Purine riboswitch aptamer: a 97-nucleotide RNA from Dorea sp. D27.
Pairs were carried over by alignment from the consensus structure, which is taken from published work.
A search with the family's covariance model found it, with a score of 53 bits.
RNA sequence: GCAACAAAAAAUAUGGAGACUUAUAUAGGUUCAUAAUCGGUUGAGCGUUUCUACCAACUACCGUAAAUAGUUGUCUAUAAGUAUCCGCACGAUGUAA
Numbered sequence: 001g002c003a004a005c006a007a008a009a010a011a012u013a014u015g016g017a018g019a020c021u022u023a024u025a026u027a028g029g030u031u032c033a034u035a036a037u038c039g040g041u042u043g044a045g046c047g048u049u050u051c052u053a054c055c056a057a058c059u060a061c062c063g064u065a066a067a068u069a070g071u072u073g074u075c076u077a078u079a080a081g082u083a084u085c086c087g088c089a090c091g092a093u094g095u096a097a
Stems, first nucleotide, its partner, number of pairs: 019082007029046005055073006